Rfam assigns this 66-nucleotide sequence to the family "RAGATH-18 RNA". Rfam describes the family as follows. Actinobacteria, Firmicutes, Fusobacteria, Thermotogae (1 example). Rfam's curators put it in the seed alignment.
Nucleotides: 066
Base pairs, nucleotide, nucleotide: 001064002063003062004061005060009053010052011051012050013049022048023047024046030041031040032039
Number, partner (000 for none) and nucleotide at each position: 001064c002063c003062u004061a005060u006000g007000g008000a009053g010052a011051g012050u013049a014000c015000u016000a017000g018000a019000a020000c021000u022048u023047g024046u025000g026000a027000g028000u029000a030041g031040u032039a033000c034000c035000u036000u037000g038000a039032u040031a041030c042000g043000a044000a045000a046024g047023c048022a049013u050012a051011c052010u053009c054000g055000u056000u057000g058000a059000a060005g061004u062003a063002g064001g065000a066000a